[Rfam]
RNA: Vertebrate telomerase RNA
Organism: Rhinolophus ferrumequinum
RNA sequence: CGGGUCUGGGUCGGGUGAAGGUCUUUUGUCCCUAACCCUAGUGUAGGAGGGCGUAGGCGCCGUGCUUUUGCUCCCCGCCCGUUGUUUUUCUCGCUGGCUUUCAGCGGGCGGAAAAGCCUUGGCCUACCCCUGUCCACCAUGCAGUCUAUCUAGAUUAAACCAAAAAAUGUCAGCGGCUGGCCAGCUCACCCCUCCCAGGAACCUGCGGUGCUCGCCUGCCCAGUCCCCGCGCCCCGCCUGGAGGCCGCGGUCGGCCUGGGACUUCCCCGGAUGUUCCCGAUGCCGCCGCGAAGAGUUGGACUCUGUCAGCCGCGGGUUUCUCGGGGGCCAAGGGAGAGGCUCUGGCCGCAGGGAGAGUAACGGAGCGGGUCCCCGCGCGUGGUGCAUUUCUCUGAGCUGUGGGACUUGCAUCCGGGACUAAGCUCAAACACAC
Numbered sequence: 001c002g003g004g005u006c007u008g009g010g011u012c013g014g015g016u017g018a019a020g021g022u023c024u025u026u027u028g029u030c031c032c033u034a035a036c037c038c039u040a041g042u043g044u045a046g047g048a049g050g051g052c053g054u055a056g057g058c059g060c061c062g063u064g065c066u067u068u069u070g071c072u073c074c075c076c077g078c079c080c081g082u083u084g085u086u087u088u089u090c091u092c093g094c095u096g097g098c099u100u101u102c103a104g105c106g107g108g109c110g111g112a113a114a115a116g117c118c119u120u121g122g123c124c125u126a127c128c129c130c131u132g133u134c135c136a137c138c139a140u141g142c143a144g145u146c147u148a149u150c151u152a153g154a155u156u157a158a159a160c161c162a163a164a165a166a167a168u169g170u171c172a173g174c175g176g177c178u179g180g181c182c183a184g185c186u187c188a189c190c191c192c193u194c195c196c197a198g199g200a201a202c203c204u205g206c207g208g209u210g211c212u213c214g215c216c217u218g219c220c221c222a223g224u225c226c227c228c229g230c231g232c233c234c235c236g237c238c239u240g241g242a243g244g245c246c247g248c249g250g251u252c253g254g255c256c257u258g259g260g261a262c263u264u265c266c267c268c269g270g271a272u273g274u275u276c277c278c279g280a281u282g283c284c285g286c287c288g289c290g291a292a293g294a295g296u297u298g299g300a301c302u303c304u305g306u307c308a309g310c311c312g313c314g315g316g317u318u319u320c321u322c323g324g325g326g327g328c329c330a331a332g333g334g335a336g337a338g339g340c341u342c343u344g345g346c347c348g349c350a351g352g353g354a355g356a357g358u359a360a361c362g363g364a365g366c367g368g369g370u371c372c373c374c375g376c377g378c379g380u381g382g383u384g385c386a387u388u389u390c391u392c393u394g395a396g397c398u399g400u401g402g403g404a405c406u407u408g409c410a411u412c413c414g415g416g417a418c419u420a421a422g423c424u425c426a427a428a429c430a431c432a433c
Base pairs, nucleotide, nucleotide: 005199006198007197008196009195010194013191014190015189016188017187018186020182021181022180023179064117065116066115067114068113076110077109078108079107080106081105082104083103084102093174094173095172096171097170098169099167100166101165202352203351204350205349206348207347208346214340215339216338217336219334220333221332225326226325227324228323229322231320233316234315235314236313237312246290247289248288249287250286252285253284254283255282258278259277260276292304293303294302295301363425364424365423366422368419369418370417371416372415373414382411383410384409385408386407389404390403391402392401